[Rfam]
RNA sequence: UUUUUUUUUUUCGAUAUAAAACACUUAUGUUGAUAAAAUUAUUUGAGCCUUUU
Numbered sequence: 001u002u003u004u005u006u007u008u009u010u011u012c013g014a015u016a017u018a019a020a021a022c023a024c025u026u027a028u029g030u031u032g033a034u035a036a037a038a039u040u041a042u043u044u045g046a047g048c049c050u051u052u053u
Stems, first nucleotide, its partner, number of pairs: 011033007

Rfam assigns this 53-nucleotide RNA from Acer yangbiense to the family "Plastid-atpF group II-D1 intron". For this family Rfam cites "Retrograde signaling in plants: A critical review focusing on the GUN pathway and beyond" (Richter et al., Plant Commun, 2023). From the family's description: Plastid atpF is a non-coding RNA (ncRNA) recognised in plastids. It has been reported in the intron group II-D1 region of ATP synthase (atpF) genes. Its family is annotated with Group II intron splicing in the Gene Ontology.